Group I catalytic intron: a 284-nucleotide sequence from Furculomyces boomerangus.
[Rfam]
RNA sequence: AAGCUUCUUUGGCCUAAUGUGGAAGUAAACCUUCUGCAAUAAAUCAUCAAAUUGCGGGAAAACCUUAAAGCUAUUUUAACUAAACAAAAAUGGUAACAUAUUUUGUGGCACAGGUAAUGACUCGUGGUAUAGUAAAAUCAAAAUAGAUGUACGAAAGGAAAUAGGUAAUCCGCAGCCAAGCACGAUAAUAGAUCGUGUGCAGUUCAUCGAUUAAAUGUUGGUUGGCGUAAAUACAAAAUUAUAUUACGCUUAAGAUAUAAUCAAACCUUACUUGAAAGAGUACA
Numbered sequence: 001a002a003g004c005u006u007c008u009u010u011g012g013c014c015u016a017a018u019g020u021g022g023a024a025g026u027a028a029a030c031c032u033u034c035u036g037c038a039a040u041a042a043a044u045c046a047u048c049a050a051a052u053u054g055c056g057g058g059a060a061a062a063c064c065u066u067a068a069a070g071c072u073a074u075u076u077u078a079a080c081u082a083a084a085c086a087a088a089a090a091u092g093g094u095a096a097c098a099u100a101u102u103u104u105g106u107g108g109c110a111c112a113g114g115u116a117a118u119g120a121c122u123c124g125u126g127g128u129a130u131a132g133u134a135a136a137a138u139c140a141a142a143a144u145a146g147a148u149g150u151a152c153g154a155a156a157g158g159a160a161a162u163a164g165g166u167a168a169u170c171c172g173c174a175g176c177c178a179a180g181c182a183c184g185a186u187a188a189u190a191g192a193u194c195g196u197g198u199g200c201a202g203u204u205c206a207u208c209g210a211u212u213a214a215a216u217g218u219u220g221g222u223u224g225g226c227g228u229a230a231a232u233a234c235a236a237a238a239u240u241a242u243a244u245u246a247c248g249c250u251u252a253a254g255a256u257a258u259a260a261u262c263a264a265a266c267c268u269u270a271c272u273u274g275a276a277a278g279a280g281u282a283c284a
Base pairs, nucleotide, nucleotide: 001010002009021031022030042223043222044221045220046219048217049216053174054173055172056171057170058169063165064164065163175203176202180198181197182196183195184194185193186192207263209262210261211260212259213258225249226248227247228246229245230244269282270281271280272279273278
Gene Ontology term of the family: Group I intron splicing.
On this family, see Cech, Annu Rev Biochem 1990: "Self-splicing of group I introns".
Group I catalytic introns are large self-splicing ribozymes. They catalyse their own excision from mRNA, tRNA and rRNA precursors in a wide range of organisms. The core secondary structure consists of 9 paired regions (P1-P9). These fold to essentially two domains - the P4-P6 domain (formed from the stacking of P5, P4, P6 and P6a helices) and the P3-P9 domain (formed from the P8, P3, P7 and P9 helices).